[Rfam]
RNA sequence: GGACCACUGGACAGGGGUCCUGCCCUUUCGGGGCAGCUGUCCGGUCAAGGCCAUACGGACAGCCGGGUCCACUGCCGA
Numbered sequence: 001g002g003a004c005c006a007c008u009g010g011a012c013a014g015g016g017g018u019c020c021u022g023c024c025c026u027u028u029c030g031g032g033g034c035a036g037c038u039g040u041c042c043g044g045u046c047a048a049g050g051c052c053a054u055a056c057g058g059a060c061a062g063c064c065g066g067g068u069c070c071a072c073u074g075c076c077g078a
Base pairs, nucleotide, nucleotide: 001070002069003068004067005066006045007044008043009042010041011040012039013038014037
Rfam assigns this 78-nucleotide RNA sequence to the family "Streptococcus sRNA SpF59 (ldcC RNA)". It is one of the family's seed sequences. For this family Rfam cites "Control of virulence by small RNAs in Streptococcus pneumoniae" (Mann et al., PLoS Pathog, 2012). The family's RNA type in Rfam is small RNA.